RNA sequence: CGUCAAAAUUCGUGCCGAAAUUGCGCGUUCUGCGCGGAACACGUAUACUUUCAGUGUUGACAUAAUACAGUGUGCUUUGCGGUUACCAGCCGCAGGCGGCUGAUGAAACCUCGCUCCGGCGGGGUUUUUU
Numbered sequence: 001c002g003u004c005a006a007a008a009u010u011c012g013u014g015c016c017g018a019a020a021u022u023g024c025g026c027g028u029u030c031u032g033c034g035c036g037g038a039a040c041a042c043g044u045a046u047a048c049u050u051u052c053a054g055u056g057u058u059g060a061c062a063u064a065a066u067a068c069a070g071u072g073u074g075c076u077u078u079g080c081g082g083u084u085a086c087c088a089g090c091c092g093c094a095g096g097c098g099g100c101u102g103a104u105g106a107a108a109c110c111u112c113g114c115u116c117c118g119g120c121g122g123g124g125u126u127u128u129u130u
Base pairs, nucleotide, nucleotide: 002061003060004059005058006057011056012055017051018050019049022045023044024043025042027040028039029038030037031036068102069101070100071099073098074097075096076095078094079093080092081091082090105128106127107126108125109124110123111122112121113120114119
Dot-bracket structure: .(((((....((....(((..((((.(((((....))))).))))...)))...)))))))......((((.((((.(((((.......)))))))))))))..((((((((((....))))))))))..
Source information: Shown here is a 130-nucleotide sequence from Escherichia coli, a member of the family "istR Hfq binding RNA". For this family Rfam cites "The small RNA IstR inhibits synthesis of an SOS-induced toxic peptide" (Vogel et al., Curr Biol, 2004). Taxonomically the source falls in Escherichia coli (Bacteria, Pseudomonadati, Pseudomonadota, Enterobacterales).